Rfam assigns this 282-nucleotide sequence from Nannospalax galili to the family "Mason-Pfizer monkey virus packaging signal". The literature on the family includes a 2004 paper in Virus Res by Mustafa et al., "Mutational analysis of the predicted secondary RNA structure of the Mason-Pfizer monkey virus packaging signal". The organism belongs to Nannospalax, within Eukaryota.
[Rfam]
RNA sequence: UGGCACCCAGCGUGGGCCUGGAUACUGGGGACAAUGUGAGGGACACAACGGAGUAAAGAAGGGGUGCGCACCCGAUCAAACAAUAGUUCAGAGACAUCGUGGUAGCCUGCUGUGACUGAGCCGACAGGUAAGUUGGUCGUGCAAUUUAAAUUAUGGGGCAAGCAUUGAGUCAGCACCAGAAAUAUGUGAUACAGUUAAGAGAAGCUUUACAGGCAAGAGGAGUAAAGGUUACAACUGAGGAUUUAUUUCAUUUCUUUGAUUUUGUGAAAGACAUCUGCCCAU
Numbered sequence: 001u002g003g004c005a006c007c008c009a010g011c012g013u014g015g016g017c018c019u020g021g022a023u024a025c026u027g028g029g030g031a032c033a034a035u036g037u038g039a040g041g042g043a044c045a046c047a048a049c050g051g052a053g054u055a056a057a058g059a060a061g062g063g064g065u066g067c068g069c070a071c072c073c074g075a076u077c078a079a080a081c082a083a084u085a086g087u088u089c090a091g092a093g094a095c096a097u098c099g100u101g102g103u104a105g106c107c108u109g110c111u112g113u114g115a116c117u118g119a120g121c122c123g124a125c126a127g128g129u130a131a132g133u134u135g136g137u138c139g140u141g142c143a144a145u146u147u148a149a150a151u152u153a154u155g156g157g158g159c160a161a162g163c164a165u166u167g168a169g170u171c172a173g174c175a176c177c178a179g180a181a182a183u184a185u186g187u188g189a190u191a192c193a194g195u196u197a198a199g200a201g202a203a204g205c206u207u208u209a210c211a212g213g214c215a216a217g218a219g220g221a222g223u224a225a226a227g228g229u230u231a232c233a234a235c236u237g238a239g240g241a242u243u244u245a246u247u248u249c250a251u252u253u254c255u256u257u258g259a260u261u262u263u264g265u266g267a268a269a270g271a272c273a274u275c276u277g278c279c280c281a282u
Stems, first nucleotide, its partner, number of pairs: 006030003012025003035047003085129001087127001095118002098114005140160003145157004166209003169205002217257006226244005267282001270279001272277001
Dot-bracket structure: .....(((...(((........)))..)))....(((.......))).....................................(.(.......((.(((((.......)))))..))........).)..........(((..((((.....))))))).....(((((.................................)).))).......((((((...(((((.........))))).......)))))).........(..(.(....).)..)